[Rfam]
RNA sequence: AUCUACACUGAGUGGCCAGAUUACUAUAAUCUCUGAACGCAUAGUAAUCUGGCCACUUAGUGUAUAU
Dot-bracket structure: ...((((((((((((((.(((((((((.............))))))))).))))))))))))))...
The family of this 67-nucleotide RNA sequence from Pipistrellus kuhlii is "mir-9256 microRNA precursor family".
The family has 8 seed sequences and 31,772 matches in Rfam 15.1.